Shown here is a 93-nucleotide sequence from Coffea arabica, a member of the family "Small nucleolar RNA SNORD24". For this family Rfam cites "Site-specific ribose methylation of preribosomal RNA: a novel function for small nucleolar RNAs" (Kiss-Laszlo et al., Cell, 1996). The organism belongs to Coffea, within Eukaryota. Its family is annotated with RNA processing and nucleolus in the Gene Ontology. The match comes from Rfam's covariance-model search (53 bits).
RNA sequence: GGCCUGUGAUGUGAGAAAUAGAUAUUUGCUACUCUUGAUGGGUAAUUUAUCUACCCACCUGAUGAUUUUCUAUCCACCAAGAUCUUUGAGGCC
Numbered sequence: 001g002g003c004c005u006g007u008g009a010u011g012u013g014a015g016a017a018a019u020a021g022a023u024a025u026u027u028g029c030u031a032c033u034c035u036u037g038a039u040g041g042g043u044a045a046u047u048u049a050u051c052u053a054c055c056c057a058c059c060u061g062a063u064g065a066u067u068u069u070c071u072a073u074c075c076a077c078c079a080a081g082a083u084c085u086u087u088g089a090g091g092c093c
Stems, first nucleotide, its partner, number of pairs: 001093004